Rfam assigns this 76-nucleotide sequence from Enterobacter cancerogenus to the family "Enterobacterial sRNA STnc240".
[Rfam]
RNA sequence: CUUGAAUAGGGCAAAAUGCCGCCGCUGCAAACAAAUGAAUAAUCGACGAUAUAAAAGGCGUCGGUUAUUUUUUUUU
Numbered sequence: 001c002u003u004g005a006a007u008a009g010g011g012c013a014a015a016a017u018g019c020c021g022c023c024g025c026u027g028c029a030a031a032c033a034a035a036u037g038a039a040u041a042a043u044c045g046a047c048g049a050u051a052u053a054a055a056a057g058g059c060g061u062c063g064g065u066u067a068u069u070u071u072u073u074u075u076u
Stems, first nucleotide, its partner, number of pairs: 011022002040067009
Rfam classes the family as a small RNA. It is one of the family's seed sequences.